Record summary: Rfam assigns this 80-nucleotide RNA sequence from Scyliorhinus torazame to the family "mir-365 microRNA precursor family". Taxonomically the source falls in Scyliorhinus (Eukaryota, Opisthokonta, Chondrichthyes, Carcharhiniformes). Rfam 15.1 lists 1,300 matches to the family in 640 species.

RNA sequence: CAGCAAGAAAGAUGAGGGUUUUUUGGGGACAGAUAUGUUCUACUUUCAUAAUGCCCCUACAAAUCCCUAUUUCUCAUGCA
Dot-bracket structure: ..............((((..((..((((.((..((((.........)))).)).))))..))..))))............